Rfam assigns this 34-nucleotide sequence from Paenibacillus sp. P1XP2 to the family "L31-Firmicutes ribosomal protein leader". For this family Rfam cites "Discovery of 20 novel ribosomal leader candidates in bacteria and archaea" (Eckert and Weinberg, BMC Microbiol, 2020). The source organism's lineage runs through Bacteria, Bacillati, Bacilli, Caryophanales and Paenibacillus. The base pairs follow the family's consensus structure, which is taken from published work. It is annotated as a cis-regulatory leader. The family is grouped with related families in Rfam's "Ribosomal Protein L31 Leader clan".
RNA sequence: CUCUGUGUACGCAUGAGACUCAGGGCAAAAAGAG
Numbered sequence: 001c002u003c004u005g006u007g008u009a010c011g012c013a014u015g016a017g018a019c020u021c022a023g024g025g026c027a028a029a030a031a032g033a034g
Base pairs, nucleotide, nucleotide: 001025002024003023004022005021007019008018